[Rfam]
This 102-nucleotide RNA from Jeotgalibacillus campisalis belongs to the Rfam family "SAM riboswitch aptamer (S box leader)". Gene Ontology term of the family: regulation of gene expression. The SAM riboswitch is found upstream of a number of genes which code for proteins involved in methionine or cysteine biosynthesis in Gram-positive bacteria.
RNA sequence: UUCUUAUCACGAGAGGUGGAGGGACUGGCCCUUUGAUACCUCGGCAGCGGACUAUUUUAGCACCGUGCCAACUCCAGCAGACAGCAGUCUGAGAGAUGAGAA
Numbered sequence: 001u002u003c004u005u006a007u008c009a010c011g012a013g014a015g016g017u018g019g020a021g022g023g024a025c026u027g028g029c030c031c032u033u034u035g036a037u038a039c040c041u042c043g044g045c046a047g048c049g050g051a052c053u054a055u056u057u058u059a060g061c062a063c064c065g066u067g068c069c070a071a072c073u074c075c076a077g078c079a080g081a082c083a084g085c086a087g088u089c090u091g092a093g094a095g096a097u098g099a100g101a102a
Stems, first nucleotide, its partner, number of pairs: 001102008013042005021031003025077004043069004048065002050061001073094001078091005
Overview
The match comes from Rfam's covariance-model search (87 bits). Pairs were carried over by alignment from the consensus structure, which is taken from published work. Lineage of the source: Bacteria > Bacillota > Caryophanales > Caryophanaceae > Jeotgalibacillus.